[Rfam]
RNA sequence: UUUCUGUGAAAGACAUGGGUAGUGAGAUGUUUGAUUUCCCAUCUCACUACCUUGUCUUUGACGGAAAG
Numbered sequence: 001u002u003u004c005u006g007u008g009a010a011a012g013a014c015a016u017g018g019g020u021a022g023u024g025a026g027a028u029g030u031u032u033g034a035u036u037u038c039c040c041a042u043c044u045c046a047c048u049a050c051c052u053u054g055u056c057u058u059u060g061a062c063g064g065a066a067a068g
Stems, first nucleotide, its partner, number of pairs: 009059007017052003021048009
Dot-bracket structure: ........(((((((.(((.(((((((((..........))))))))).)))))))))).........

A member of the RNA family "mir-71 microRNA precursor family" from Araneus ventricosus, 68 nucleotides long. Pairs were carried over by alignment from the consensus structure, which was predicted with RNAalifold. The literature on the family includes a 2010 paper in BMC Genomics by Liu et al., "MicroRNAs of Bombyx mori identified by Solexa sequencing". Lineage of the source: Eukaryota > Bilateria > Protostomia > Arachnida > Araneus. The family has 36 seed sequences and 372 matches in Rfam 15.1.